[Rfam]
RNA sequence: CGAUGCCCGUGGCCGAGUCCGCGUCCCCCCAAUGGACGCGGAGCCGGGGACCCACGUUUCAGGGGUGAAUCGGCGCCGCCAAUGAGCGCGCCGUAGGGCUCUUCCAUGCCCGAAUCCGUCAGCUAACCCGGUAGGCGACAUGGGAGAUAUA
Numbered sequence: 001c002g003a004u005g006c007c008c009g010u011g012g013c014c015g016a017g018u019c020c021g022c023g024u025c026c027c028c029c030c031a032a033u034g035g036a037c038g039c040g041g042a043g044c045c046g047g048g049g050a051c052c053c054a055c056g057u058u059u060c061a062g063g064g065g066u067g068a069a070u071c072g073g074c075g076c077c078g079c080c081a082a083u084g085a086g087c088g089c090g091c092c093g094u095a096g097g098g099c100u101c102u103u104c105c106a107u108g109c110c111c112g113a114a115u116c117c118g119u120c121a122g123c124u125a126a127c128c129c130g131g132u133a134g135g136c137g138a139c140a141u142g143g144g145a146g147a148u149a150u151a
Stems, first nucleotide, its partner, number of pairs: 001134001006041002043132006053062001063117003071093006096111004
The record is a 151-nucleotide RNA sequence from Actinomadura barringtoniae, which matches "c-di-AMP riboswitch aptamer (ydaO/yuaA leader)" in Rfam. Its family is annotated with cyclic-di-AMP binding and regulation of gene expression in the Gene Ontology. Rfam describes the family as follows. This family represents a conserved RNA structure found upstream of the ydaO and yuaA genes in Bacillus subtilis and related genes in other bacteria. NCBI's taxonomy places the organism under Bacteria, Bacillati, Actinomycetes, Streptosporangiales, Actinomadura.